[Rfam]
RNA sequence: GCAAGAUAAGGAGCGCCGGAACCCCCGAUGGGGGUUGACGAGGAGAGGGAUCUCGAAAUUAUUCGGCGGGUGACCUCCGGCUUCUCAACAGCCGUCAAAUCACGGACAAAGGUCGUUUGCAAAGGCGACACAAAACCGUGCGGUUGAGACCG
Numbered sequence: 001g002c003a004a005g006a007u008a009a010g011g012a013g014c015g016c017c018g019g020a021a022c023c024c025c026c027g028a029u030g031g032g033g034g035u036u037g038a039c040g041a042g043g044a045g046a047g048g049g050a051u052c053u054c055g056a057a058a059u060u061a062u063u064c065g066g067c068g069g070g071u072g073a074c075c076u077c078c079g080g081c082u083u084c085u086c087a088a089c090a091g092c093c094g095u096c097a098a099a100u101c102a103c104g105g106a107c108a109a110a111g112g113u114c115g116u117u118u119g120c121a122a123a124g125g126c127g128a129c130a131c132a133a134a135a136c137c138g139u140g141c142g143g144u145u146g147a148g149a150c151c152g
Stems, first nucleotide, its partner, number of pairs: 020036007045077004053066004078094005101140005113128006
Shown here is a 152-nucleotide RNA sequence from Sulfobacillus acidophilus, a member of the family "glmS glucosamine-6-phosphate activated ribozyme aptamer". The organism belongs to Sulfobacillus acidophilus, within Bacteria. About the family: This entry contains a glucosamine-6-phosphate activated ribozyme that is found in the mRNA for GlmS. GlmS is an enzyme that uses fructose-6-phosphate and glutamine to generate glucosamine-6-phosphate. The ribozyme catalyses self cleavage of the glmS mRNA that is thought to regulate GlmS activity. It is annotated as a riboswitch.